[Rfam]
RNA: mir-574 microRNA precursor family
Organism: Cnephaeus nilssonii
RNA sequence: AGGCCCAAAGAGAGAGGCAGGGUCUGAUCCGCAGCCCGUGGUAGUUGUUGAUCAGCUGUUGCCUCUCUCUUUCUCUCCG
Numbered sequence: 001a002g003g004c005c006c007a008a009a010g011a012g013a014g015a016g017g018c019a020g021g022g023u024c025u026g027a028u029c030c031g032c033a034g035c036c037c038g039u040g041g042u043a044g045u046u047g048u049u050g051a052u053c054a055g056c057u058g059u060u061g062c063c064u065c066u067c068u069c070u071u072u073c074u075c076u077c078c079g
Base pairs, nucleotide, nucleotide: 008071009070010069011068012067013066014065015064016063017062018061019060020059022057024055025054026053027052028051029050032047033046034045035044